[Rfam]
RNA sequence: GACAGAGUAGGUAUAGAGCGUUAAGUGCUUGAAGAUGGGAAGUUGCUUCAAGACGAAAGAUUAUUCUGCGAUUCUACACCGCAUCCGCUGUC
Numbered sequence: 001g002a003c004a005g006a007g008u009a010g011g012u013a014u015a016g017a018g019c020g021u022u023a024a025g026u027g028c029u030u031g032a033a034g035a036u037g038g039g040a041a042g043u044u045g046c047u048u049c050a051a052g053a054c055g056a057a058a059g060a061u062u063a064u065u066c067u068g069c070g071a072u073u074c075u076a077c078a079c080c081g082c083a084u085c086c087g088c089u090g091u092c
Stems, first nucleotide, its partner, number of pairs: 001092005010080003014076005019070003025054002028052007038086003042082001058067003

This 92-nucleotide RNA sequence from Soehngenia longivitae belongs to the Rfam family "THF (Tetrahydrofolate) riboswitch aptamer". Rfam 15.1 lists 747 matches to the family in 747 species. Taxonomically the source falls in Soehngenia (Bacteria, Bacillota, Tissierellia, Tissierellaceae). Tetrahydrofolate (THF) riboswitch was first reported for Ames et al. as an RNA motif in 5' untranslated (5'-UTR)regions of folate transport and biosynthesis genes in Firmicutes genomes.